[Rfam]
RNA sequence: CAACAGUUGAAAGGAGGUGAUCCAGUGUCUCAUAGUUUCAUCCGUAGCUCGGAAACCGUGACCUGGACCUCCGCUUACGAGGUCCGCGCCUAAGCCACUGGUUUGGCAAAGGUUCGGUUCCGCGCUUGCGGUCCGACUAUGGAAAGGCCGCCCCCGACAACGGGGCGGCCUU
Numbered sequence: 001c002a003a004c005a006g007u008u009g010a011a012a013g014g015a016g017g018u019g020a021u022c023c024a025g026u027g028u029c030u031c032a033u034a035g036u037u038u039c040a041u042c043c044g045u046a047g048c049u050c051g052g053a054a055a056c057c058g059u060g061a062c063c064u065g066g067a068c069c070u071c072c073g074c075u076u077a078c079g080a081g082g083u084c085c086g087c088g089c090c091u092a093a094g095c096c097a098c099u100g101g102u103u104u105g106g107c108a109a110a111g112g113u114u115c116g117g118u119u120c121c122g123c124g125c126u127u128g129c130g131g132u133c134c135g136a137c138u139a140u141g142g143a144a145a146g147g148c149c150g151c152c153c154c155c156g157a158c159a160a161c162g163g164g165g166c167g168g169c170c171u172u
Stems, first nucleotide, its partner, number of pairs: 016023002031141007045065001047063001049061003067083005084117003090112002094107004120131004144172009154163003
caulobacter sRNA CC2171: a 172-nucleotide RNA sequence from Phenylobacterium deserti.
It is annotated as a small RNA.
A search with the family's covariance model found it, with a score of 98 bits.
Lineage of the source: Bacteria > Pseudomonadota > Caulobacterales > Caulobacteraceae > Phenylobacterium.